[Rfam]
RNA sequence: UUAAAAUAUUGAUGUUAUAUGGAAGGUUUUUAUAAUAAACUUUACCAACUUGGGCUAUUUGGGGCAAUAAAGAAAACCACACACCACAGUGGGCUAUAUCACUAAAUAUACAGUUCACUACUAUUUUGUGGUCUAUGUG
Number, nucleotide and partner (000 for none) at each position: 001u000002u062003a000004a060005a059006a058007u000008a000009u000010u057011g056012a000013u054014g000015u052016u000017a000018u000019a050020u000021g046022g045023a000024a043025g040026g000027u038028u037029u000030u000031u000032a000033u000034a000035a000036u000037a028038a027039a000040c025041u000042u000043u024044a000045c022046c021047a000048a000049c000050u019051u000052g015053g000054g013055c000056u011057a010058u006059u005060u004061g000062g002063g000064g000065c000066a000067a000068u000069a000070a000071a000072g000073a000074a134075a000076a000077c131078c130079a129080c128081a127082c000083a000084c000085c000086a000087c000088a119089g118090u117091g116092g115093g114094c113095u112096a000097u110098a109099u108100c000101a000102c000103u000104a000105a000106a000107u000108a099109u098110a097111c000112a095113g094114u093115u092116c091117a090118c089119u088120a000121c000122u000123a000124u000125u000126u000127u081128g080129u079130g078131g077132u000133c000134u074135a000136u000137g000138u000139g000
RNA: Small nucleolar RNA SNORA4